Overview: This 139-nucleotide RNA sequence from Phyllostomus discolor belongs to the Rfam family "U4 spliceosomal RNA". The family is grouped with related families in Rfam's "U4 clan". By type it is a spliceosomal small nuclear RNA. The match comes from Rfam's covariance-model search (49 bits). NCBI's taxonomy places the organism under Eukaryota, Opisthokonta, Bilateria, Chiroptera, Phyllostomus.
RNA sequence: AGCUUUGUGCAUUGGCACUAUCAUAGCCAAUGAGGUUUAUCCGAAGCACAAUUAUUGGUAAUAGAAAUAAAUAAAUCUUCAUAAAUGUAUAAAGGCACUUUAGAUCCUCUUCUUCAUUAUUAUUUUAUAACUGCAUAGU
Numbered sequence: 001a002g003c004u005u006u007g008u009g010c011a012u013u014g015g016c017a018c019u020a021u022c023a024u025a026g027c028c029a030a031u032g033a034g035g036u037u038u039a040u041c042c043g044a045a046g047c048a049c050a051a052u053u054a055u056u057g058g059u060a061a062u063a064g065a066a067a068u069a070a071a072u073a074a075a076u077c078u079u080c081a082u083a084a085a086u087g088u089a090u091a092a093a094g095g096c097a098c099u100u101u102a103g104a105u106c107c108u109c110u111u112c113u114u115c116a117u118u119a120u121u122a123u124u125u126u127a128u129a130a131c132u133g134c135a136u137a138g139u
Stems, first nucleotide, its partner, number of pairs: 020052002024048001026047002034042002081120003085117003089113001091111002093108002130139003